Lysine riboswitch aptamer: a 183-nucleotide sequence from [Anoxybacillus] calidus. The family's consensus secondary structure is taken from published work. From the family's description: Riboswitches are metabolite binding domains within certain messenger RNAs that serve as precision sensors for their corresponding targets.
[Rfam]
RNA sequence: AAAUGAGAUAGAGGCUGCAAUGAAUAAGAGUAUUUGAAGGAGAUGGAGAGAAAUCGAUGAUUUCAAAUGAAAGGAUUCAUUGCCGAAGUUUGUAGCGAACUCUGGCGCUACAAGCUGGGACUGUUUCCGAAUAGGGGCAGAACUGCCAUCGUUUUUAUAAAACGAUGGUGAGCUAUCGGUCUU
Numbered sequence: 001a002a003a004u005g006a007g008a009u010a011g012a013g014g015c016u017g018c019a020a021u022g023a024a025u026a027a028g029a030g031u032a033u034u035u036g037a038a039g040g041a042g043a044u045g046g047a048g049a050g051a052a053a054u055c056g057a058u059g060a061u062u063u064c065a066a067a068u069g070a071a072a073g074g075a076u077u078c079a080u081u082g083c084c085g086a087a088g089u090u091u092g093u094a095g096c097g098a099a100c101u102c103u104g105g106c107g108c109u110a111c112a113a114g115c116u117g118g119g120a121c122u123g124u125u126u127c128c129g130a131a132u133a134g135g136g137g138c139a140g141a142a143c144u145g146c147c148a149u150c151g152u153u154u155u156u157a158u159a160a161a162a163c164g165a166u167g168g169u170g171a172g173c174u175a176u177c178g179g180u181c182u183u
Base pairs, nucleotide, nucleotide: 007177008176009175010174011173017083018082019081020080021079022078023077024076025075032068033067034066035065036064037063038062039061087116088115089114090113091112092111093110094109095108096107097106117144118143121140122139123138124137125136126135127134146168147167148166149165150164151163152162